[Rfam]
The record is a 759-nucleotide RNA from Opitutus sp. ER46, which matches "MISL RNA" in Rfam. It scores 512 bits against the family's covariance model. Lineage of the source: Bacteria > Pseudomonadati > Verrucomicrobiota > Opitutia > Opitutus.
RNA sequence: GGAUAAUCCCGGGCAACCGGGGAAAGGCAGGUGGCAGCUGGUGCCACCUUCCCCUCAUCAUGCAUCUGCGUGAGGCGAGGCAUAUAUCACCAGUUCCUCUGGCCGGAGUCGUGUCCGGUCAGCUCACACACGAACAGGAACUGUGCGGCGAGGCGUGAUUAGAAACCGCGUCCGAGCCGAGUCAGGCCCACGGGGCGUUUCGACCCGUGCGCUGACGCAGUUACCCCAGAGGGUUUGGGUUGCUACUGUGUUGAUCAGAACGCAGUCGCGAUUCCAGGCGGGCCAACCCCGCCACAAGGUCUCAUCCGCCGCGCGGGUGGGACGCGCAAAGGAAUCACGACAGCGGGGAGCGAGCGGAUCUGGCAAAGUCCGUGAAACCUCCUCACCGGGGCGGGCUCGUAAAGCGAGAUCGCCCUACUGCAGAAACGAAAAGCAACCUGAGAGGUAAGAGGUCAGACCCGUAACGCGAGGCCAACGAUCGGUCAAAAGCCGGUGCCGUCCUCGCGGUCCGAGGUGCCGGUGCGCAAUGUAUGCUGCAGGCGAAUCUGCACCUGGUCCGGCGCGCCGCUUCCGGCAGGAAGCGUCCGAACCGGGCAAAGAGGCCUCACUCGAAAGAUCCCGACCGGCAACGGUCAGGACGGUCCCGCCAUGAGACCGAGACAUCCGCAUGCCGCGGAGAGUGGCGUCGGGAAGCACACCGCCCGCGAAAGCGAGAGCGCCCAAGCGUGUGCCGCCGGGAAAGAGCGCGUGGCGAACGCC
Numbered sequence: 001g002g003a004u005a006a007u008c009c010c011g012g013g014c015a016a017c018c019g020g021g022g023a024a025a026g027g028c029a030g031g032u033g034g035c036a037g038c039u040g041g042u043g044c045c046a047c048c049u050u051c052c053c054c055u056c057a058u059c060a061u062g063c064a065u066c067u068g069c070g071u072g073a074g075g076c077g078a079g080g081c082a083u084a085u086a087u088c089a090c091c092a093g094u095u096c097c098u099c100u101g102g103c104c105g106g107a108g109u110c111g112u113g114u115c116c117g118g119u120c121a122g123c124u125c126a127c128a129c130a131c132g133a134a135c136a137g138g139a140a141c142u143g144u145g146c147g148g149c150g151a152g153g154c155g156u157g158a159u160u161a162g163a164a165a166c167c168g169c170g171u172c173c174g175a176g177c178c179g180a181g182u183c184a185g186g187c188c189c190a191c192g193g194g195g196c197g198u199u200u201c202g203a204c205c206c207g208u209g210c211g212c213u214g215a216c217g218c219a220g221u222u223a224c225c226c227c228a229g230a231g232g233g234u235u236u237g238g239g240u241u242g243c244u245a246c247u248g249u250g251u252u253g254a255u256c257a258g259a260a261c262g263c264a265g266u267c268g269c270g271a272u273u274c275c276a277g278g279c280g281g282g283c284c285a286a287c288c289c290c291g292c293c294a295c296a297a298g299g300u301c302u303c304a305u306c307c308g309c310c311g312c313g314c315g316g317g318u319g320g321g322a323c324g325c326g327c328a329a330a331g332g333a334a335u336c337a338c339g340a341c342a343g344c345g346g347g348g349a350g351c352g353a354g355c356g357g358a359u360c361u362g363g364c365a366a367a368g369u370c371c372g373u374g375a376a377a378c379c380u381c382c383u384c385a386c387c388g389g390g391g392c393g394g395g396c397u398c399g400u401a402a403a404g405c406g407a408g409a410u411c412g413c414c415c416u417a418c419u420g421c422a423g424a425a426a427c428g429a430a431a432a433g434c435a436a437c438c439u440g441a442g443a444g445g446u447a448a449g450a451g452g453u454c455a456g457a458c459c460c461g462u463a464a465c466g467c468g469a470g471g472c473c474a475a476c477g478a479u480c481g482g483u484c485a486a487a488a489g490c491c492g493g494u495g496c497c498g499u500c501c502u503c504g505c506g507g508u509c510c511g512a513g514g515u516g517c518c519g520g521u522g523c524g525c526a527a528u529g530u531a532u533g534c535u536g537c538a539g540g541c542g543a544a545u546c547u548g549c550a551c552c553u554g555g556u557c558c559g560g561c562g563c564g565c566c567g568c569u570u571c572c573g574g575c576a577g578g579a580a581g582c583g584u585c586c587g588a589a590c591c592g593g594g595c596a597a598a599g600a601g602g603c604c605u606c607a608c609u610c611g612a613a614a615g616a617u618c619c620c621g622a623c624c625g626g627c628a629a630c631g632g633u634c635a636g637g638a639c640g641g642u643c644c645c646g647c648c649a650u651g652a653g654a655c656c657g658a659g660a661c662a663u664c665c666g667c668a669u670g671c672c673g674c675g676g677a678g679a680g681u682g683g684c685g686u687c688g689g690g691a692a693g694c695a696c697a698c699c700g701c702c703c704g705c706g707a708a709a710g711c712g713a714g715a716g717c718g719c720c721c722a723a724g725c726g727u728g729u730g731c732c733g734c735c736g737g738g739a740a741a742g743a744g745c746g747c748g749u750g751g752c753g754a755a756c757g758c759c
Stems, first nucleotide, its partner, number of pairs: 008021005026052002029049008058073005091143008103118005111129003146179004152173002154170003162201005185213003189209006216250005223234003238438006277293006299323011345384006354373006396408004442610003449606004465506007478494006515550003519546003523542002555595006563587002566583007617638003621634005639657005646684004663677005693731006699724001700717002703712003744758003